Rfam assigns this 88-nucleotide RNA sequence from Quercus lobata to the family "mir-160 microRNA precursor family".
The base pairs follow the family's consensus structure, which was predicted with PFOLD.
Gene Ontology terms of the family: RISC complex and miRNA-mediated post-transcriptional gene silencing.
RNA sequence: UUAUGCCUGGCUCCCUGUAUGCCACAAGCAUGAACCAAUCUGUUUGUUGAUUGACUAAUGCUGGUGGCGUGCGAGGAGCCAAGCAUAC
Numbered sequence: 001u002u003a004u005g006c007c008u009g010g011c012u013c014c015c016u017g018u019a020u021g022c023c024a025c026a027a028g029c030a031u032g033a034a035c036c037a038a039u040c041u042g043u044u045u046g047u048u049g050a051u052u053g054a055c056u057a058a059u060g061c062u063g064g065u066g067g068c069g070u071g072c073g074a075g076g077a078g079c080c081a082a083g084c085a086u087a088c
Stems, first nucleotide, its partner, number of pairs: 002087005008081007016073009027062003